Record summary
The record is a 71-nucleotide RNA sequence from Pampusana beccarii, which matches "tRNA" in Rfam. Rfam classes the family as a transfer RNA. NCBI's taxonomy places the organism under Eukaryota, Gnathostomata, Dinosauria, Theropoda, Pampusana. Rfam's curators write: Transfer RNA (tRNA) molecules are approximately 80 nucleotides in length. Rfam links the family to the GO term triplet codon-amino acid adaptor activity.

RNA sequence: ACUUUUAAAGGAUAGCAGUAAUCCACUGGUUUUAGGAGCCAUUCAUCUUGGUGCAAAUCCAAGUAAAAGUA
Number, nucleotide and partner (000 for none) at each position: 001a070002c069003u068004u067005u066006u065007a064008a000009a000010g024011g023012a022013u021014a000015g000016c000017a000018g000019u000020a000021a013022u012023c011024c010025a000026c000027u041028g040029g039030u038031u000032u000033u000034a000035g000036g000037a000038g030039c029040c028041a027042u000043u000044c000045a000046u000047c063048u062049u061050g060051g059052u000053g000054c000055a000056a000057a000058u000059c051060c050061a049062a048063g047064u007065a006066a005067a004068a003069g002070u001071a000